[Rfam]
RNA: Flavo-1 RNA
RNA sequence: CCCUAGCCCUGAUGGGAACGGCAUCCUUUUUUGUCAUUGCGAUUGCUGAUAAGUUCAAUUUAUUGAUUUGCGUCGUUCGCAAUGGCAAAAAAGAUAUAGUGGACAGCAGGUUCCCGG
Numbered sequence: 001c002c003c004u005a006g007c008c009c010u011g012a013u014g015g016g017a018a019c020g021g022c023a024u025c026c027u028u029u030u031u032u033g034u035c036a037u038u039g040c041g042a043u044u045g046c047u048g049a050u051a052a053g054u055u056c057a058a059u060u061u062a063u064u065g066a067u068u069u070g071c072g073u074c075g076u077u078c079g080c081a082a083u084g085g086c087a088a089a090a091a092a093g094a095u096a097u098a099g100u101g102g103a104c105a106g107c108a109g110g111u112u113c114c115c116g117g
Stems, first nucleotide, its partner, number of pairs: 009109003013105002018100002023095003029090014